[Rfam]
RNA sequence: AUCUUUGCGCUUGGGGCAAUGUCGCAGCCUAUGAGAUUAAAUCGAGGCGCGACUAUUGCUGGUUGAAAACUUAUUCCUUCCCCGUCGGUUGUGUCCCAUCGGGACCAACUGCAAUAUUUGGCGUCCCUCCGCGGGA
Numbered sequence: 001a002u003c004u005u006u007g008c009g010c011u012u013g014g015g016g017c018a019a020u021g022u023c024g025c026a027g028c029c030u031a032u033g034a035g036a037u038u039a040a041a042u043c044g045a046g047g048c049g050c051g052a053c054u055a056u057u058g059c060u061g062g063u064u065g066a067a068a069a070c071u072u073a074u075u076c077c078u079u080c081c082c083c084g085u086c087g088g089u090u091g092u093g094u095c096c097c098a099u100c101g102g103g104a105c106c107a108a109c110u111g112c113a114a115u116a117u118u119u120g121g122c123g124u125c126c127c128u129c130c131g132c133g134g135g136a
Stems, first nucleotide, its partner, number of pairs: 021053005027048003035043003084112001086111006093105005126135003
RNA: U4 spliceosomal RNA
Organism: Volvox africanus